A member of the RNA family "Small nucleolar RNA SNORA33" from Jaculus jaculus, 129 nucleotides long. About the family: ACA33 is a member of the H/ACA class of snoRNA that guide the sites of modification of uridines to pseudouridines. The family's RNA type in Rfam is H/ACA-box small nucleolar RNA. The base pairs follow the family's consensus structure, which was predicted with PFOLD. Rfam 15.1 lists 1,176 matches to the family in 522 species.

[Rfam]
RNA sequence: GAGCUAAGCAAUUGAUCUGCUUAUCUGAAUGUGUUUCUGUGGAAAUUUAGAAAUAGCUGGCAACAGUAAUGAUGUCUUUAAAACCUUAAGUACAAGAGAUCAUUAUGGUCCCUGAAAAUAGCUACAAUA
Numbered sequence: 001g002a003g004c005u006a007a008g009c010a011a012u013u014g015a016u017c018u019g020c021u022u023a024u025c026u027g028a029a030u031g032u033g034u035u036u037c038u039g040u041g042g043a044a045a046u047u048u049a050g051a052a053a054u055a056g057c058u059g060g061c062a063a064c065a066g067u068a069a070u071g072a073u074g075u076c077u078u079u080a081a082a083a084c085c086u087u088a089a090g091u092a093c094a095a096g097a098g099a100u101c102a103u104u105a106u107g108g109u110c111c112c113u114g115a116a117a118a119u120a121g122c123u124a125c126a127a128u129a
Base pairs, nucleotide, nucleotide: 003061004060005059006058016043017042018041019040020039071122073120074119083109084108085107087105088104089103092100